[Rfam]
RNA: raiA RNA
Organism: Parolsenella catena
RNA sequence: CUCAUUCAGGUCUGUGGUUGCGGGGUGGUGAGGCGAGUUCGCGUGCGCGGCAAAGACGCCGCAUCCGUGCGCCCACCUCGUUGGCUAUGCCAACAGCCUCCCCAAGUCCAUGCCAGACGAGGGCCAAGGGAUCCACGUAAGUUCGGGCGUGCGCGUCCGAGCGAGCAUGGCUCGUCCUAGAAGUAAGCCGCACCGUCCGUUCAGCCAGGGGCAAAAGGCCCCGCGGGCGAGAGGGCCAGUAGUGGCGCCGCCGCGGCGGAGUGCUGCGACCGUCCCCGUGCGCGAGUGUGGGGUCAAAUACCAGGUCAGCUGAACGAG
Number, nucleotide and partner (000 for none) at each position: 001c318002u317003c316004a000005u314006u313007c312008a311009g310010g000011u000012c309013u308014g307015u303016g302017g301018u300019u000020g000021c000022g000023g000024g000025g000026u000027g000028g000029u000030g000031a000032g000033g000034c000035g000036a000037g000038u000039u000040c000041g000042c000043g000044u000045g000046c000047g000048c000049g000050g000051c000052a000053a000054a000055g000056a000057c000058g000059c000060c000061g000062c000063a000064u000065c000066c000067g000068u000069g000070c000071g000072c000073c000074c000075a000076c000077c000078u000079c000080g000081u000082u000083g000084g000085c000086u000087a000088u000089g000090c000091c000092a000093a000094c000095a000096g000097c000098c000099u000100c000101c000102c000103c000104a000105a000106g000107u000108c000109c000110a289111u288112g287113c123114c000115a000116g176117a175118c174119g173120a172121g171122g000123g113124c000125c000126a000127a000128g000129g000130g000131a000132u170133c169134c000135a000136c000137g000138u000139a000140a000141g000142u160143u159144c000145g157146g156147g000148c000149g000150u000151g000152c000153g000154c000155g000156u146157c145158c000159g143160a142161g000162c000163g000164a000165g000166c000167a000168u296169g133170g132171c121172u120173c119174g118175u117176c116177c000178u000179a000180g000181a000182a000183g000184u000185a000186a000187g000188c000189c282190g281191c280192a279193c278194c229195g228196u227197c226198c225199g224200u223201u000202c000203a000204g000205c000206c000207a000208g000209g000210g000211g000212c000213a000214a000215a000216a000217g000218g000219c000220c000221c000222c000223g200224c199225g198226g197227g196228c195229g194230a000231g000232a000233g275234g274235g273236c272237c000238a000239g000240u000241a000242g267243u266244g000245g000246c000247g000248c000249c258250g257251c256252c000253g000254c000255g000256g251257c250258g249259g000260a000261g000262u000263g000264c000265u000266g243267c242268g000269a000270c000271c000272g236273u235274c234275c233276c000277c000278g193279u192280g191281c190282g189283c000284g000285a000286g000287u112288g111289u110290g000291g000292g000293g000294u000295c000296a168297a000298a000299u000300a018301c017302c016303a015304g000305g000306u000307c014308a013309g012310c009311u008312g007313a006314a005315c000316g003317a002318g001